Notes: The record is a 268-nucleotide RNA sequence from Novipirellula galeiformis, which matches "Group II catalytic intron D1-D4-6" in Rfam. Rfam links the family to the GO term Group II intron splicing. The literature on the family includes a 2001 paper in EMBO J by Chu et al., "Control of branch-site choice by a group II intron".
Nucleotides: 268
Stems, first nucleotide, its partner, number of pairs: 012036004019031003023237001025235002038103001040101002044098004048093002050088009153262001156259006179253001181251002184249001185211003190205004216248002219245008
Number, partner (000 for none) and nucleotide at each position: 001000u002000g003000a004000a005000u006000c007000c008000c009000g010000c011000c012036u013035g014034g015033g016000u017000a018000a019031a020030c021029g022000c023237u024000a025235g026234c027000c028000a029021c030020g031019u032000g033015c034014c035013c036012g037000g038103u039000a040101u041100c042000g043000a044098g045097u046096g047095u048093u049092g050088c051087a052086g053085c054084g055083g056082c057081u058080g059000u060000a061000u062000a063000a064000g065000a066000c067000c068000u069000u070000g071000g072000g073000u074000c075000g076000a077000a078000g079000u080058c081057a082056g083055u084054c085053g086052u087051u088050g089000a090000a091000g092049c093048g094000u095047a096046c097045a098044c099000a100041g101040a102000a103038a104000g105000g106000u107000a108000g109000u110000g111000a112000g113000g114000a115000u116000g117000a118000a119000g120000c121000g122000a123000u124000c125000g126000u127000a128000g129000g130000u131000g132000g133000c134000c135000c136000u137000g138000c139000g140000a141000c142000g143000u144000u145000g146000a147000a148000u149000g150000g151000a152000a153262u154000u155000a156259g157258c158257c159256c160255c161254g162000a163000a164000a165000u166000u167000u168000u169000g170000u171000a172000c173000c174000u175000g176000u177000u178000g179253g180000a181251u182250c183000c184249u185211g186210c187209c188000c189000a190205a191204g192203g193202u194000u195000u196000g197000u198000u199000c200000a201000c202193a203192c204191c205190u206000g207000a208000a209187g210186g211185c212000a213000a214000c215000a216248u217247c218000g219245u220244u221243u222242g223241c224240a225239g226238c227000g228000c229000u230000u231000a232000u233000g234026g235025c236000a237023a238226g239225u240224u241223g242222c243221a244220a245219a246000g247217g248216a249184a250182g251181a252000c253179c254161c255160g256159g257158g258157g259156u260000c261000g262153g263000c264000g265000g266000c267000c268000c